PyrR binding site: a 105-nucleotide RNA sequence from Ornithinibacillus halophilus. The family's consensus secondary structure is taken from published work. For this family Rfam cites "Molecular recognition of pyr mRNA by the Bacillus subtilis attenuation regulatory protein PyrR" (Bonner et al., Nucleic Acids Res, 2001). Rfam classes the family as a cis-regulatory element. This family represents the PyrR binding site and terminator structure. This RNA structure is found upstream of a variety of genes involved in pyrimidine biosynthesis and transport. The alignment also includes a portion of the antiterminator structure. The organism belongs to Ornithinibacillus, within Bacteria.

RNA sequence: AGGAACCUUUAACAUAGUCCUGUGAGGCUAAAAGGUACGGAUACUUAACUGUUAGGUAUAGUCUAUCUAAACCCUUUUUUCCUCAUGGAGAAAAGGGUUUUUAUC
Numbered sequence: 001a002g003g004a005a006c007c008u009u010u011a012a013c014a015u016a017g018u019c020c021u022g023u024g025a026g027g028c029u030a031a032a033a034g035g036u037a038c039g040g041a042u043a044c045u046u047a048a049c050u051g052u053u054a055g056g057u058a059u060a061g062u063c064u065a066u067c068u069a070a071a072c073c074c075u076u077u078u079u080u081c082c083u084c085a086u087g088g089a090g091a092a093a094a095g096g097g098u099u100u101u102u103a104u105c
Stems, first nucleotide, its partner, number of pairs: 003038001005036005015030005039066001041064001046061001048057003069100014